[Rfam]
Annotation: SAM riboswitch aptamer (S box leader): a 108-nucleotide RNA from Bacillus sp. 1NLA3E. The family's consensus secondary structure is taken from published work. Rfam describes the family as follows. The SAM riboswitch is found upstream of a number of genes which code for proteins involved in methionine or cysteine biosynthesis in Gram-positive bacteria. The SAM riboswitch acts at the level of transcription termination control. The predicted structure consists of a complex stem-loop region followed by a single stem loop terminator region. An alternative and mutually exclusive form involves bases in the 3' segment of helix 1 with those in the 5' region of helix 5 to form a structure termed the anti-terminator form. Gene Ontology term of the family: regulation of gene expression.

RNA sequence: UACUUAUCCAGAGCGACCGAGGGACUAGGCCCUAUGACGUCCGGCAACCCCCUUUUUUGGGAAAGGUGCCAAUUCCUGCAGAAUGACUUUCAUUCUGAGAGAUAAGUC
Numbered sequence: 001u002a003c004u005u006a007u008c009c010a011g012a013g014c015g016a017c018c019g020a021g022g023g024a025c026u027a028g029g030c031c032c033u034a035u036g037a038c039g040u041c042c043g044g045c046a047a048c049c050c051c052c053u054u055u056u057u058u059g060g061g062a063a064a065g066g067u068g069c070c071a072a073u074u075c076c077u078g079c080a081g082a083a084u085g086a087c088u089u090u091c092a093u094u095c096u097g098a099g100a101g102a103u104a105a106g107u108c
Stems, first nucleotide, its partner, number of pairs: 002107007013042001015041003021032003026078004043070004048066002051061003074100001079097006